[Rfam]
RNA sequence: GUUGCACCCGGCUUCCAUGCCGGGUGAGGAUUGAAAC
Dot-bracket structure: ....((((((((......))))))))...........

Rfam assigns this 37-nucleotide RNA from Neomoorella thermoacetica to the family "CRISPR RNA direct repeat element".